[Rfam]
RNA sequence: CAAGUAAAUAGGCAAACCUGCUGAAAAGCAGUGACGCAAAGCUAAAGGGCCUUGGCGGUAAAGCCGUGGCAGCCAGCUGCCUCA
Numbered sequence: 001c002a003a004g005u006a007a008a009u010a011g012g013c014a015a016a017c018c019u020g021c022u023g024a025a026a027a028g029c030a031g032u033g034a035c036g037c038a039a040a041g042c043u044a045a046a047g048g049g050c051c052u053u054g055g056c057g058g059u060a061a062a063g064c065c066g067u068g069g070c071a072g073c074c075a076g077c078u079g080c081c082u083c084a
Base pairs, nucleotide, nucleotide: 012037013036018031019030020029021028022027040078041077042076043075047074048073049070050069051068056066057065058064059063
RNA: c-di-GMP-I riboswitch aptamer
Organism: Anaerostipes rhamnosivorans